[Rfam]
RNA: mir-23 microRNA precursor family
RNA sequence: GAUUGUAGGGGUUCCUGGCAUCGUGAUUUAAUAAUUAAAUAAAAGUGAAAAAUCACAUUGCCAGGGAUUACCACACAGUU
Numbered sequence: 001g002a003u004u005g006u007a008g009g010g011g012u013u014c015c016u017g018g019c020a021u022c023g024u025g026a027u028u029u030a031a032u033a034a035u036u037a038a039a040u041a042a043a044a045g046u047g048a049a050a051a052a053u054c055a056c057a058u059u060g061c062c063a064g065g066g067a068u069u070a071c072c073a074c075a076c077a078g079u080u
Stems, first nucleotide, its partner, number of pairs: 001080002004077003009072002011068010023056007